Background:
Shown here is an 86-nucleotide RNA sequence from Clostridium luticellarii, a member of the family "c-di-GMP-I riboswitch aptamer". The source organism's lineage runs through Bacteria, Bacillati, Bacillota, Clostridia and Clostridium. Pairs were carried over by alignment from the consensus structure, which is taken from published work. The match comes from Rfam's covariance-model search (75 bits).
RNA sequence: CAUUAUAAAUAGCAAACCUUAUGAAAAUGGGGGACGCAAAGCUGCGGAUCUAAAGCUGUUUAAGCCAUGAUAGCCGGGUUGCUGAU
Numbered sequence: 001c002a003u004u005a006u007a008a009a010u011a012g013c014a015a016a017c018c019u020u021a022u023g024a025a026a027a028u029g030g031g032g033g034a035c036g037c038a039a040a041g042c043u044g045c046g047g048a049u050c051u052a053a054a055g056c057u058g059u060u061u062a063a064g065c066c067a068u069g070a071u072a073g074c075c076g077g078g079u080u081g082c083u084g085a086u
Stems, first nucleotide, its partner, number of pairs: 012037002017032006040080004045076003048071003055065003